[Rfam]
RNA sequence: CAUGACAAAGGCAAACCGUUUGAGAAGACGGCACGCAAAGCUACGGGUCCGUGGGUGGAUGUGAGCAAUCACGUUUCAUCUCAGGAAAGCCGGGCUGCCAAGG
Numbered sequence: 001c002a003u004g005a006c007a008a009a010g011g012c013a014a015a016c017c018g019u020u021u022g023a024g025a026a027g028a029c030g031g032c033a034c035g036c037a038a039a040g041c042u043a044c045g046g047g048u049c050c051g052u053g054g055g056u057g058g059a060u061g062u063g064a065g066c067a068a069u070c071a072c073g074u075u076u077c078a079u080c081u082c083a084g085g086a087a088a089g090c091c092g093g094g095c096u097g098c099c100a101a102g103g
Base pairs, nucleotide, nucleotide: 001103003100004099011036012035016031017030018029019028020027021026034089039096040095041094042093044092045091046090048086049085